[Rfam]
RNA sequence: UUGCCAUGAAAGGGGGUCAUUGUAGAAGCGUGCUCGUCGCGACCCCUGCCAGCCCUUUUCAGGGCUGCAAUUCUGCA
Numbered sequence: 001u002u003g004c005c006a007u008g009a010a011a012g013g014g015g016g017u018c019a020u021u022g023u024a025g026a027a028g029c030g031u032g033c034u035c036g037u038c039g040c041g042a043c044c045c046c047u048g049c050c051a052g053c054c055c056u057u058u059u060c061a062g063g064g065c066u067g068c069a070a071u072u073c074u075g076c077a
Stems, first nucleotide, its partner, number of pairs: 013046006021077007028040003050067007
Mammalian CPEB3 ribozyme: a 77-nucleotide RNA from Parnassius apollo. The base pairs follow the family's consensus structure, which is taken from published work. Lineage of the source: Eukaryota > Lepidoptera > Ditrysia > Parnassini > Parnassius. Rfam describes the family as follows. The mammalian CPEB3 ribozyme is a self cleaving RNA located in the second intron of the CPEB3 gene which belongs to a family of genes regulating messenger RNA polyadenylation.